[Rfam]
Shown here is an 84-nucleotide RNA from Trema orientale, a member of the family "Small nucleolar RNA Z122". Rfam classes the family as a C/D-box small nucleolar RNA. Its family is annotated with RNA processing and nucleolus in the Gene Ontology. Lineage of the source: Eukaryota > Tracheophyta > fabids > Rosales > Trema.
RNA sequence: UCUGAGAAAUGAUGCCACUGUACAAAAAAAAUUAUCUGACCAGUGAUGCCGAACUUUCUAUUUGCACGUCAGUCUGAUCCCAAA
Number, nucleotide and partner (000 for none) at each position: 001u084002c000003u082004g081005a000006g079007a078008a000009a000010u000011g000012a000013u000014g000015c000016c000017a000018c000019u000020g000021u000022a000023c000024a000025a000026a000027a000028a000029a000030a000031a000032u000033u000034a000035u000036c000037u000038g000039a000040c000041c000042a000043g000044u000045g000046a000047u000048g000049c000050c000051g000052a000053a000054c000055u000056u000057u000058c000059u000060a000061u000062u000063u000064g000065c000066a000067c000068g000069u000070c000071a000072g000073u000074c000075u000076g000077a000078u007079c006080c000081c004082a003083a000084a001